A member of the RNA family "PyrR binding site" from Furfurilactobacillus siliginis, 126 nucleotides long. Rfam 15.1 lists 1,498 matches to the family in 930 species.
[Rfam]
RNA sequence: UGAACCUUUAACGUAGUCCUGUGAGGCUAGUAAGGUGCCGGCGGUGUUCACUAAGGACGGAUGAAACUGUGCUUAAAGUCUGAACACUAAAAGACCACUUACCUUCAGGUAGGUGGUCUUUUUUUG
Numbered sequence: 001u002g003a004a005c006c007u008u009u010a011a012c013g014u015a016g017u018c019c020u021g022u023g024a025g026g027c028u029a030g031u032a033a034g035g036u037g038c039c040g041g042c043g044g045u046g047u048u049c050a051c052u053a054a055g056g057a058c059g060g061a062u063g064a065a066a067c068u069g070u071g072c073u074u075a076a077a078g079u080c081u082g083a084a085c086a087c088u089a090a091a092a093g094a095c096c097a098c099u100u101a102c103c104u105u106c107a108g109g110u111a112g113g114u115g116g117u118c119u120u121u122u123u124u125u126g
Stems, first nucleotide, its partner, number of pairs: 004036005014029005044087007090121014